[Rfam]
RNA sequence: CACGCACAGGGCAAACCAUUCGAAAGAGUGGGACGCAAAGCCUCCGGCCUAAACGGCAUUGCACUCCGCCGUAGGUAGCGGGGUUACCGAUGG
Numbered sequence: 001c002a003c004g005c006a007c008a009g010g011g012c013a014a015a016c017c018a019u020u021c022g023a024a025a026g027a028g029u030g031g032g033a034c035g036c037a038a039a040g041c042c043u044c045c046g047g048c049c050u051a052a053a054c055g056g057c058a059u060u061g062c063a064c065u066c067c068g069c070c071g072u073a074g075g076u077a078g079c080g081g082g083g084u085u086a087c088c089g090a091u092g093g
Stems, first nucleotide, its partner, number of pairs: 001092001003089002011036002016031006034078001039085004044081003047076005
Dot-bracket structure: (.((......((...((((((....))))))..[))..((((.((((((((....................))))).])))))))..))..).
Shown here is a 93-nucleotide RNA sequence from Vibrio cholerae, a member of the family "c-di-GMP-I-GGC riboswitch aptamer". Clan: c-di-GMP_I riboswitch clan. The sequence is in the family's curated seed alignment. NCBI's taxonomy places the organism under Bacteria, Gammaproteobacteria, Vibrionales, Vibrionaceae, Vibrio.